[Rfam]
RNA: SAM-I/IV (S-adenosyl methionine) riboswitch aptamer
Organism: Flavobacteria bacterium BAL38
RNA sequence: AUUAAGCAUCAAGAUAAUCCAUUGGGUUAGCCAACCGAUCAACUCACGACACGGUGGCUUAGUAUGCGGAACAGUCGUUCAAAUGUGUUGAGAAAUC
Numbered sequence: 001a002u003u004a005a006g007c008a009u010c011a012a013g014a015u016a017a018u019c020c021a022u023u024g025g026g027u028u029a030g031c032c033a034a035c036c037g038a039u040c041a042a043c044u045c046a047c048g049a050c051a052c053g054g055u056g057g058c059u060u061a062g063u064a065u066g067c068g069g070a071a072c073a074g075u076c077g078u079u080c081a082a083a084u085g086u087g088u089u090g091a092g093a094a095a096u097c
Base pairs, nucleotide, nucleotide: 006067007066008065009064015029016028017027018026019025020024030058031057032056035054036053037052039049040048044090046088069080070079071078072077